Description:
This 56-nucleotide RNA from Methylorubrum extorquens belongs to the Rfam family "nhaA-I RNA". About the family: Acidobacteria, Alphaproteobacteria, Betaproteobacteria and Gammaproteobacteria, Verrucomicrobia, cand. division NC10. Rfam's curators put it in the seed alignment. The family's RNA type in Rfam is riboswitch. The family's consensus secondary structure is taken from published work.

RNA sequence: GGGUGUGCGGUCCGGCAAUAGGAUCGGCAGGUCAAGCGUUGGUCGGGCCGCCAGCG
Number, nucleotide and partner (000 for none) at each position: 001g000002g000003g000004u000005g028006u027007g000008c026009g025010g024011u023012c022013c000014g000015g000016c000017a000018a000019u000020a000021g000022g012023a011024u010025c009026g008027g006028c005029a000030g000031g000032u000033c000034a000035a000036g000037c056038g055039u054040u053041g052042g051043u050044c000045g000046g000047g000048c000049c000050g043051c042052c041053a040054g039055c038056g037